[Rfam]
RNA sequence: UCAAACAAUGCGCUGAAUUCUUACGAAGUAAGAAGCGGGGGAACCAUUCUUUUGGGGUGAAUCUCUUUUCAGAGUAGGGUCAUCUUCUUUCGAUCCGAAUCCGUCAGCUAACCUCGUAAGCGUGGAAAGAGGAAGA
Numbered sequence: 001u002c003a004a005a006c007a008a009u010g011c012g013c014u015g016a017a018u019u020c021u022u023a024c025g026a027a028g029u030a031a032g033a034a035g036c037g038g039g040g041g042a043a044c045c046a047u048u049c050u051u052u053u054g055g056g057g058u059g060a061a062u063c064u065c066u067u068u069u070c071a072g073a074g075u076a077g078g079g080u081c082a083u084c085u086u087c088u089u090u091c092g093a094u095c096c097g098a099a100u101c102c103g104u105c106a107g108c109u110a111a112c113c114u115c116g117u118a119a120g121c122g123u124g125g126a127a128a129g130a131g132g133a134a135g136a
Stems, first nucleotide, its partner, number of pairs: 011122004018034007035117006045054002055102003063074004077096004

A member of the RNA family "c-di-AMP riboswitch aptamer (ydaO/yuaA leader)" from Thermotalea metallivorans, 136 nucleotides long. A search with the family's covariance model found it, with a score of 107 bits. The source organism's lineage runs through Bacteria, Bacillati, Bacillota, Peptostreptococcales and Thermotalea. Rfam links the family to the GO terms cyclic-di-AMP binding and regulation of gene expression.